[Rfam]
RNA sequence: UUAAACACGAUGACAAGGACAAGUAGGCAGGCGCGGUCAUUCUUCAGAAAGCCGAUGGGUGAUGCGAAUCGGUGAAGCCGCUUUGCUGAAUGGACCUUGGAGUGCCUUGGGCAGAACAGGAAGAAGCCUCGUGCUCCCUCCUUACUAUGCGGGCCGGUUAUUCUCCGUUAUAAGAAUCCAAGGCUGCGGCAAUGAUGUGCGACAUCAUGGUCCUGUUGCAGCGAAUUAGGGUGGCACCACGGUCUCUCGUCCCUUUA
Dot-bracket structure: ......((......((((.......((((((........(((........((((((...........))))))))).....)))))).......))))...))..(((..(((..................................)))))).(((.......)))...............(((((((((......................))))))))).....((((.......((((....))))))))...

Background:
This 257-nucleotide RNA sequence from Paenibacillus sp. 7541 belongs to the Rfam family "T-box leader". It scores 100 bits against the family's covariance model. The family's RNA type in Rfam is cis-regulatory leader. Rfam 15.1 lists 19,395 matches to the family in 1,923 species.